[Rfam]
RNA sequence: UAGGGCCCAGAGACCUCCCUGUCCGCUCAGGGAAACAUCUCAGCCGACUGCGCAGGCGGGAUGCAGAGCACUGACAGCCACGAGGUCUCGCAACUUAACG
Number, nucleotide and partner (000 for none) at each position: 001u000002a000003g000004g000005g000006c000007c000008c000009a000010g089011a088012g087013a086014c085015c084016u083017c082018c000019c000020u000021g000022u000023c000024c000025g000026c000027u000028c000029a000030g000031g000032g000033a000034a000035a000036c000037a000038u000039c000040u060041c059042a000043g057044c056045c055046g000047a000048c000049u000050g000051c000052g000053c000054a000055g045056g044057c043058g000059g041060g040061a000062u000063g000064c000065a000066g000067a000068g000069c000070a000071c000072u000073g000074a000075c000076a000077g000078c000079c000080a000081c000082g017083a016084g015085g014086u013087c012088u011089c010090g000091c000092a000093a000094c000095u000096u000097a000098a000099c000100g000